[Rfam]
RNA: iscR stability element
Organism: Jejuibacter calystegiae
RNA sequence: AUAACGAUAUUCAGAAUCAGGACGGGGCGCAUCGAGUGACUGGCCGUACGUCCCCGCCAGCCCGACCUGAUUCUUUGCAUUGAAGUGAUGUACGGAGCUUAAGAGC
Numbered sequence: 001a002u003a004a005c006g007a008u009a010u011u012c013a014g015a016a017u018c019a020g021g022a023c024g025g026g027g028c029g030c031a032u033c034g035a036g037u038g039a040c041u042g043g044c045c046g047u048a049c050g051u052c053c054c055c056g057c058c059a060g061c062c063c064g065a066c067c068u069g070a071u072u073c074u075u076u077g078c079a080u081u082g083a084a085g086u087g088a089u090g091u092a093c094g095g096a097g098c099u100u101a102a103g104a105g106c
Stems, first nucleotide, its partner, number of pairs: 010097003014073008023034003038063001041059003076092001078090003